[Rfam]
The record is a 70-nucleotide sequence from Thermoproteus tenax, which matches "Pyrobaculum sRNA 201" in Rfam.

RNA sequence: GCCCUAGGUGUGAGGUCCAGAGCGGCGGGCACCCCGCGCCGAUGAUAGGGCCUCCUCCGGGGGGCCUACA
Numbered sequence: 001g002c003c004c005u006a007g008g009u010g011u012g013a014g015g016u017c018c019a020g021a022g023c024g025g026c027g028g029g030c031a032c033c034c035c036g037c038g039c040c041g042a043u044g045a046u047a048g049g050g051c052c053u054c055c056u057c058c059g060g061g062g063g064g065c066c067u068a069c070a
Base pairs, nucleotide, nucleotide: 001065002064003063004062005061012054013053014052015051016050017049018048019046024039025037026036027035028034
By type it is an H/ACA-box small nucleolar RNA. Lineage of the source: Archaea > Thermoproteati > Thermoprotei > Thermoproteaceae > Thermoproteus tenax. Rfam describes the family as follows. Has weak conservation of the canonical pseudouridylation guide sRNA features among the Pyrobaculum species. Its family is annotated with RNA processing in the Gene Ontology.